The record is a 104-nucleotide RNA from Alteromonas macleodii, which matches "t44 RNA" in Rfam. From the family's description: This family consists of a number of bacterial RNA genes of between 135 and 170 bases in length. The t44 gene has been identified in several species of enteric bacteria but homologs have also been identified in Pseudomonas and Coxiella species. The t44 gene is found between the map and rpsB genes in all species in the full alignment apart from Shigella flexneri. The function of this RNA is unknown. Pairs were carried over by alignment from the consensus structure, which was predicted with LocARNA.
[Rfam]
RNA sequence: AAAUUUAUUUUAUUAAAACACACAUAUACCGACACUUCGUAUCGGGGUGUUCAGUUCAAUUUAGGUUGGUCUGAAUCGAUACAAGGGGUAUAUGGAGGCCUAAC
Numbered sequence: 001a002a003a004u005u006u007a008u009u010u011u012a013u014u015a016a017a018a019c020a021c022a023c024a025u026a027u028a029c030c031g032a033c034a035c036u037u038c039g040u041a042u043c044g045g046g047g048u049g050u051u052c053a054g055u056u057c058a059a060u061u062u063a064g065g066u067u068g069g070u071c072u073g074a075a076u077c078g079a080u081a082c083a084a085g086g087g088g089u090a091u092a093u094g095g096a097g098g099c100c101u102a103a104c
Stems, first nucleotide, its partner, number of pairs: 023094008035085003039082006049076005
A reference for the family is Tjaden et al. (2002), "Transcriptome analysis of Escherichia coli using high-density oligonucleotide probe arrays", Nucleic Acids Res. Rfam classes the family as a small RNA. It is one of the family's seed sequences.